[Rfam]
RNA sequence: CGUCAUGACGCUCUCUAUCACGGAGAACGUUAUGAUGAGGAUUAUAGGAAAAGUCGAGUUACGGGAGUUGGUAUUAUACAGCCCACAACACAUAGCCAGAUUGGAAAAGGCAGGUAAGUUCCCCAAGCGGGUACGGCUAGGCCCGAACCGAGUUGGUUGGGUGUUGCAGGAAGUGUUAGAUUGGCUUCAAGAACGGCUCGAUUGUAGAGCAUAACCAAGCUGACACUCCAGAAAUGGAGAUGGGCGGUUGAGAGCAAUCUC
Numbered sequence: 001c002g003u004c005a006u007g008a009c010g011c012u013c014u015c016u017a018u019c020a021c022g023g024a025g026a027a028c029g030u031u032a033u034g035a036u037g038a039g040g041a042u043u044a045u046a047g048g049a050a051a052a053g054u055c056g057a058g059u060u061a062c063g064g065g066a067g068u069u070g071g072u073a074u075u076a077u078a079c080a081g082c083c084c085a086c087a088a089c090a091c092a093u094a095g096c097c098a099g100a101u102u103g104g105a106a107a108a109g110g111c112a113g114g115u116a117a118g119u120u121c122c123c124c125a126a127g128c129g130g131g132u133a134c135g136g137c138u139a140g141g142c143c144c145g146a147a148c149c150g151a152g153u154u155g156g157u158u159g160g161g162u163g164u165u166g167c168a169g170g171a172a173g174u175g176u177u178a179g180a181u182u183g184g185c186u187u188c189a190a191g192a193a194c195g196g197c198u199c200g201a202u203u204g205u206a207g208a209g210c211a212u213a214a215c216c217a218a219g220c221u222g223a224c225a226c227u228c229c230a231g232a233a234a235u236g237g238a239g240a241u242g243g244g245c246g247g248u249u250g251a252g253a254g255c256a257a258u259c260u261c
Base pairs, nucleotide, nucleotide: 001037002036003035004034005033006032007031008030009029010028012026013025014024015023016022055200056199057198058197059196060195064188065187066186067185068184069183070182071181072180074178077175078174079173082169086166087165088164089163091161093159094158096156097155098154101150103148109143110142111141113138114137115136121131122130123129202250204248205247207245220243221242222241226239227238228237229236230235251260252259253258

Annotation: Ruegeria trans44 sRNA: a 261-nucleotide sequence from Sphingomonadales bacterium EhC05. The match comes from Rfam's covariance-model search (110 bits). For this family Rfam cites "Experimental Identification of Small Non-Coding RNAs in the Model Marine Bacterium Ruegeria pomeroyi DSS-3" (Rivers et al., Front Microbiol, 2016). NCBI's taxonomy places the organism under Bacteria, Pseudomonadati, Pseudomonadota, Alphaproteobacteria, Sphingomonadales.